This 85-nucleotide RNA sequence belongs to the Rfam family "Small nucleolar RNA SNORD79". The family has 28 seed sequences and 784 matches in Rfam 15.1. The family's consensus secondary structure was predicted with PFOLD. For this family Rfam cites "Purified box C/D snoRNPs are able to reproduce site-specific 2'-O-methylation of target RNA in vitro" (Galardi et al., Mol Cell Biol, 2002). snoRNA U79 or Z22 is found in intron 7 of the gas5 gene in humans and is also present in mice. Its family is annotated with RNA processing and nucleolus in the Gene Ontology.
RNA sequence: UACUGUUAGUGAUGAUUUUAAAAUUAAAGCAGAUGGGAAUCCCUCUGAGAAAGAAAAUGGAGAUUAAUCUUAAACUGAAACAGUA
Numbered sequence: 001u002a003c004u005g006u007u008a009g010u011g012a013u014g015a016u017u018u019u020a021a022a023a024u025u026a027a028a029g030c031a032g033a034u035g036g037g038a039a040u041c042c043c044u045c046u047g048a049g050a051a052a053g054a055a056a057a058u059g060g061a062g063a064u065u066a067a068u069c070u071u072a073a074a075c076u077g078a079a080a081c082a083g084u085a
Base pairs, nucleotide, nucleotide: 001085002084003083004082005081006080007079
Dot-bracket structure: (((((((.......................................................................)))))))